This 94-nucleotide RNA from Tribolium castaneum belongs to the Rfam family "mir-3851 microRNA precursor family". Rfam links the family to the GO terms miRNA-mediated post-transcriptional gene silencing and RISC complex. Lineage of the source: Eukaryota > Opisthokonta > Dicondylia > Aparaglossata > Tribolium.
Nucleotides: 094
Base pairs, nucleotide, nucleotide: 006090007089008088009087010086011085012084019077020076021075022074023073024072025071026070027069028068029067030066031065032064034063035062036061037060038059039058040057041056
Number, partner (000 for none) and nucleotide at each position: 001000a002000u003000c004000a005000u006090a007089a008088a009087u010086u011085u012084g013000a014000u015000u016000a017000c018000a019077a020076g021075u022074u023073g024072a025071u026070u027069u028068g029067g030066a031065g032064u033000a034063g035062u036061a037060c038059u039058a040057u041056g042000g043000u044000g045000u046000u047000u048000g049000g050000u051000a052000c053000u054000c055000a056041c057040a058039u059038a060037g061036u062035a063034c064032g065031u066030u067029c068028c069027g070026a071025a072024u073023c074022a075021a076020c077019u078000c079000g080000u081000u082000a083000a084012c085011a086010a087009a088008u089007u090006u091000a092000a093000a094000u